[Rfam]
RNA sequence: CCGCGCCCCUUACGGGGCUCGGUCCGCUGACCCCGGUACCUGAUACGGCCGGGGCAG
Numbered sequence: 001c002c003g004c005g006c007c008c009c010u011u012a013c014g015g016g017g018c019u020c021g022g023u024c025c026g027c028u029g030a031c032c033c034c035g036g037u038a039c040c041u042g043a044u045a046c047g048g049c050c051g052g053g054g055c056a057g
Stems, first nucleotide, its partner, number of pairs: 001022003005018005027057003031054007
RNA: L17-Actino-Proteobacteria ribosomal protein leader
Organism: Streptomyces aureocirculatus